[Rfam]
RNA: Eukaryotic large subunit ribosomal RNA, nucleotides 440 to 806
Organism: Aedes aegypti
RNA sequence: CCCGUUGAACUCGAUUAUCCGAUGCGGAGACAUUCACCUGCGGUGUGCUGCGAACCAGUGCGCCGCAGGGCACUUGUCUACUCGCGCUAGCCAAGAGGACACUGCGAUCCAUUACGAAACAGCUUUCGCGUCGCGAGACGCAAGGUCGCCCGACAGUUGCCCCCUGGUGCUGGUAGCUUGCCCCACAGUAGCGACGCUCAGUUCUGAAGGCCUGUGCCGCGAGGUGGGGCUUACUGCACGUGGUGUUUGCAGUCGGGCGCGUGAUGGAUUCCCCCGGACACCGGGUGGUCUUCCCGCAAGGGGCCACCGGACUGUCGAUCGGCAGUGAAAGCAUCGAGGUACCUUCGGGACCCGUCUUGAAACACGG
Numbered sequence: 001c002c003c004g005u006u007g008a009a010c011u012c013g014a015u016u017a018u019c020c021g022a023u024g025c026g027g028a029g030a031c032a033u034u035c036a037c038c039u040g041c042g043g044u045g046u047g048c049u050g051c052g053a054a055c056c057a058g059u060g061c062g063c064c065g066c067a068g069g070g071c072a073c074u075u076g077u078c079u080a081c082u083c084g085c086g087c088u089a090g091c092c093a094a095g096a097g098g099a100c101a102c103u104g105c106g107a108u109c110c111a112u113u114a115c116g117a118a119a120c121a122g123c124u125u126u127c128g129c130g131u132c133g134c135g136a137g138a139c140g141c142a143a144g145g146u147c148g149c150c151c152g153a154c155a156g157u158u159g160c161c162c163c164c165u166g167g168u169g170c171u172g173g174u175a176g177c178u179u180g181c182c183c184c185a186c187a188g189u190a191g192c193g194a195c196g197c198u199c200a201g202u203u204c205u206g207a208a209g210g211c212c213u214g215u216g217c218c219g220c221g222a223g224g225u226g227g228g229g230c231u232u233a234c235u236g237c238a239c240g241u242g243g244u245g246u247u248u249g250c251a252g253u254c255g256g257g258c259g260c261g262u263g264a265u266g267g268a269u270u271c272c273c274c275c276g277g278a279c280a281c282c283g284g285g286u287g288g289u290c291u292u293c294c295c296g297c298a299a300g301g302g303g304c305c306a307c308c309g310g311a312c313u314g315u316c317g318a319u320c321g322g323c324a325g326u327g328a329a330a331g332c333a334u335c336g337a338g339g340u341a342c343c344u345u346c347g348g349g350a351c352c353c354g355u356c357u358u359g360a361a362a363c364a365c366g367g
Stems, first nucleotide, its partner, number of pairs: 001349004007343001011339002352367004